[Rfam]
RNA: c-di-GMP-I riboswitch aptamer
RNA sequence: GUAUCGAACAGGCAGCCUCGUCGGGUGACGAGGAAGCAAAGCCAGGGGCCUCCCCGCUGGAGGUUGCCCAGCCGCCGAA
Numbered sequence: 001g002u003a004u005c006g007a008a009c010a011g012g013c014a015g016c017c018u019c020g021u022c023g024g025g026u027g028a029c030g031a032g033g034a035a036g037c038a039a040a041g042c043c044a045g046g047g048g049c050c051u052c053c054c055c056g057c058u059g060g061a062g063g064u065u066g067c068c069c070a071g072c073c074g075c076c077g078a079a
Stems, first nucleotide, its partner, number of pairs: 012037002017032006041072002045069003048064006